The family of this 98-nucleotide RNA sequence from Promicromonospora citrea is "mraW RNA". It is annotated as a cis-regulatory element. Pairs were carried over by alignment from the consensus structure, which is taken from published work. The source organism's lineage runs through Bacteria, Actinomycetes, Micrococcales, Promicromonosporaceae and Promicromonospora. It scores 54 bits against the family's covariance model. The family has 45 seed sequences and 851 matches in Rfam 15.1.
[Rfam]
RNA sequence: GGCCGGCCGUACGGUCAGGCCUCCUCCCGCAGGAUCCGGCGCACUUCCCCGCCGCCGGAACCGUGCGGAGGGAGACCUGACCGGACGGCAGGGAGGCC
Numbered sequence: 001g002g003c004c005g006g007c008c009g010u011a012c013g014g015u016c017a018g019g020c021c022u023c024c025u026c027c028c029g030c031a032g033g034a035u036c037c038g039g040c041g042c043a044c045u046u047c048c049c050c051g052c053c054g055c056c057g058g059a060a061c062c063g064u065g066c067g068g069a070g071g072g073a074g075a076c077c078u079g080a081c082c083g084g085a086c087g088g089c090a091g092g093g094a095g096g097c098c
Stems, first nucleotide, its partner, number of pairs: 010085001012083005018077002021074005027068005032062002035059007